The record is a 125-nucleotide sequence, which matches "drum RNA" in Rfam.

[Rfam]
RNA sequence: UGGCGUUGAUGCCGAGAAGCGUGUCAGGAAGCGGGACUCGGUCUAGCCUUUCGUAGGGUUUUUGCUAUAGAAACCUCAACCUGACUUAUGUAUGAUUGCAUACAGACAUAAAAAAUAGCAAAAUG
Numbered sequence: 001u002g003g004c005g006u007u008g009a010u011g012c013c014g015a016g017a018a019g020c021g022u023g024u025c026a027g028g029a030a031g032c033g034g035g036a037c038u039c040g041g042u043c044u045a046g047c048c049u050u051u052c053g054u055a056g057g058g059u060u061u062u063u064g065c066u067a068u069a070g071a072a073a074c075c076u077c078a079a080c081c082u083g084a085c086u087u088a089u090g091u092a093u094g095a096u097u098g099c100a101u102a103c104a105g106a107c108a109u110a111a112a113a114a115a116u117a118g119c120a121a122a123a124u125g
Base pairs, nucleotide, nucleotide: 002048003047004046011042012041013040014039015038016037020033021032022031024084025083026082027081063120064119065118089104090103091102092101093100094099
Rfam's curators write: Firmicutes, Bacteroidetes (1 example), Proteobacteria (2 examples), Spirochaetes (2 examples). By type it is a small RNA.